[Rfam]
RNA: L31-Firmicutes ribosomal protein leader
Organism: Paenibacillus sp. DMB20
RNA sequence: CUCUGAGUCCGCAUGAGGCUCAGGGCGGAAAGAG
Numbered sequence: 001c002u003c004u005g006a007g008u009c010c011g012c013a014u015g016a017g018g019c020u021c022a023g024g025g026c027g028g029a030a031a032g033a034g
Stems, first nucleotide, its partner, number of pairs: 001025009